[Rfam]
Notes:
The record is a 64-nucleotide sequence from Bradyrhizobium sp. ORS 278, which matches "int-alpA RNA" in Rfam. Rfam's curators write: Acidobacteria (1 example), Planctomycetes (1 example), Proteobacteria. The family's consensus secondary structure is taken from published work. Rfam's curators put it in the seed alignment.

RNA sequence: GGCGCGGCUAGGGUAGCUCCCGAAAAGCUGGCCCGCACCAGCCUGCCGCGUCGUCCUUUGCGGA
Number, nucleotide and partner (000 for none) at each position: 001g052002g051003c050004g049005c048006g047007g046008c045009u000010a000011g021012g020013g019014u000015a000016g000017c000018u000019c013020c012021c011022g000023a000024a000025a000026a000027g042028c041029u040030g039031g038032c000033c063034c062035g061036c060037a059038c031039c030040a029041g028042c027043c000044u000045g008046c007047c006048g005049c004050g003051u002052c001053g000054u000055c000056c000057u000058u000059u037060g036061c035062g034063g033064a000